[Rfam]
RNA sequence: AGUCAUAACUGCUAUUCUCCUGAAAUAGUGAUUGUGAUGAGCGGUGCGGGUGUGUUGGCGCACAUCCGCACCGCGCU
Numbered sequence: 001a002g003u004c005a006u007a008a009c010u011g012c013u014a015u016u017c018u019c020c021u022g023a024a025a026u027a028g029u030g031a032u033u034g035u036g037a038u039g040a041g042c043g044g045u046g047c048g049g050g051u052g053u054g055u056u057g058g059c060g061c062a063c064a065u066c067c068g069c070a071c072c073g074c075g076c077u
Stems, first nucleotide, its partner, number of pairs: 002038007011029006041074003045070011

The record is a 77-nucleotide RNA sequence from Escherichia fergusonii, which matches "SymR antitoxin" in Rfam. It is annotated as an antitoxin RNA. Gene Ontology term of the family: mRNA binding. A reference for the family is Kawano et al. (2007), "An antisense RNA controls synthesis of an SOS-induced toxin evolved from an antitoxin", Mol Microbiol.